This 92-nucleotide RNA from Legionella drancourtii belongs to the Rfam family "RAGATH-13 RNA".
Rfam classes the family as a ribozyme.
For this family Rfam cites "New classes of self-cleaving ribozymes revealed by comparative genomics analysis" (Weinberg et al., Nat Chem Biol, 2015).

[Rfam]
RNA sequence: ACGGGUUUACCCCCGAAUCGAGCCUUGUGGUCUGUCCAGGCAUCAUUUAUAUGAGCCGCUCGAAUAACACUAAACUAAAAUCCAGGGUAAAC
Numbered sequence: 001a002c003g004g005g006u007u008u009a010c011c012c013c014c015g016a017a018u019c020g021a022g023c024c025u026u027g028u029g030g031u032c033u034g035u036c037c038a039g040g041c042a043u044c045a046u047u048u049a050u051a052u053g054a055g056c057c058g059c060u061c062g063a064a065u066a067a068c069a070c071u072a073a074a075c076u077a078a079a080a081u082c083c084a085g086g087g088u089a090a091a092c
Stems, first nucleotide, its partner, number of pairs: 005092008018063006028038003039057003043054002
Its family is annotated with catalytic activity in the Gene Ontology.